[Rfam]
RNA sequence: CCCUUGGAGAAUUACAACAAACAUGAGUAGUUGAGUAAAUACAAAAUACGAAAGUGGGUUCGAUGAAGAGGGAA
Numbered sequence: 001c002c003c004u005u006g007g008a009g010a011a012u013u014a015c016a017a018c019a020a021a022c023a024u025g026a027g028u029a030g031u032u033g034a035g036u037a038a039a040u041a042c043a044a045a046a047u048a049c050g051a052a053a054g055u056g057g058g059u060u061c062g063a064u065g066a067a068g069a070g071g072g073a074a
Stems, first nucleotide, its partner, number of pairs: 001072005009061005022056003030049002036045001
RNA: RAGATH-18 RNA
Organism: Caryophanon tenue